Shown here is an 85-nucleotide sequence, a member of the family "Twister_sister_ribozyme".

[Rfam]
RNA sequence: ACAGCCCGCAAGGCCGACGGCAUCCGCCGCCGCUGGUGCAAGCCCAGCCGCCGCCACAACAGCGGCGGGCGCUCAUGGGUCCCAC
Numbered sequence: 001a002c003a004g005c006c007c008g009c010a011a012g013g014c015c016g017a018c019g020g021c022a023u024c025c026g027c028c029g030c031c032g033c034u035g036g037u038g039c040a041a042g043c044c045c046a047g048c049c050g051c052c053g054c055c056a057c058a059a060c061a062g063c064g065g066c067g068g069g070c071g072c073u074c075a076u077g078g079g080u081c082c083c084a085c
Stems, first nucleotide, its partner, number of pairs: 004080004013070003018029003032048004049067006